[Rfam]
Nucleotides: 036
Base pairs, nucleotide, nucleotide: 003020004019005018010035011034012033
Number, partner (000 for none) and nucleotide at each position: 001000a002000u003020g004019g005018u006000g007000g008000a009000a010035u011034c012033u013000g014000a015000a016000a017000a018005a019004c020003c021000u022000u023000c024000a025000a026000a027000a028000g029000a030000g031000u032000a033012a034011g035010a036000a
Notes
DUF805b RNA: a 36-nucleotide sequence from Tenacibaculum jejuense. The base pairs follow the family's consensus structure, which is taken from published work. It is annotated as a cis-regulatory element.